[Rfam]
RNA sequence: AGCGCUGCCGGCGCUAUAUAAAGGGAAGCGAUUAUCAUAGUUUCGCCUACAGUUUUGAAUAGCUGACGCAUAGAAUAUUCAUGGUUUACUGGUACAUACCUAUUUUAAAGUACAGUAUUCCAUAAAUGGUAGAAGAUGUUACGAAGCCAGUACCGCCGGCGAUUGAAAGCGCGGACGAAUGAGUAACAAAGGGUAAGGUUAAAUCGUUAGACUUAGAUUCUAAUGACGGCGCAAGUCGUGGGAUUACAUAGGCGUAUUAGUGAUAAUACGAUUAGUAGGGCAAAUUGGAUUUAGACGCUAAAUAAUAUGUACGAUAGUAGAAUAUCGGCUAUAAAUA
Numbered sequence: 001a002g003c004g005c006u007g008c009c010g011g012c013g014c015u016a017u018a019u020a021a022a023g024g025g026a027a028g029c030g031a032u033u034a035u036c037a038u039a040g041u042u043u044c045g046c047c048u049a050c051a052g053u054u055u056u057g058a059a060u061a062g063c064u065g066a067c068g069c070a071u072a073g074a075a076u077a078u079u080c081a082u083g084g085u086u087u088a089c090u091g092g093u094a095c096a097u098a099c100c101u102a103u104u105u106u107a108a109a110g111u112a113c114a115g116u117a118u119u120c121c122a123u124a125a126a127u128g129g130u131a132g133a134a135g136a137u138g139u140u141a142c143g144a145a146g147c148c149a150g151u152a153c154c155g156c157c158g159g160c161g162a163u164u165g166a167a168a169g170c171g172c173g174g175a176c177g178a179a180u181g182a183g184u185a186a187c188a189a190a191g192g193g194u195a196a197g198g199u200u201a202a203a204u205c206g207u208u209a210g211a212c213u214u215a216g217a218u219u220c221u222a223a224u225g226a227c228g229g230c231g232c233a234a235g236u237c238g239u240g241g242g243a244u245u246a247c248a249u250a251g252g253c254g255u256a257u258u259a260g261u262g263a264u265a266a267u268a269c270g271a272u273u274a275g276u277a278g279g280g281c282a283a284a285u286u287g288g289a290u291u292u293a294g295a296c297g298c299u300a301a302a303u304a305a306u307a308u309g310u311a312c313g314a315u316a317g318u319a320g321a322a323u324a325u326c327g328g329c330u331a332u333a334a335a336u337a
Stems, first nucleotide, its partner, number of pairs: 001015005028046004050065004082122003087117005093112003137188006150176002153174004207223005226239005253270007272301005312327005
RNA: throat-1 RNA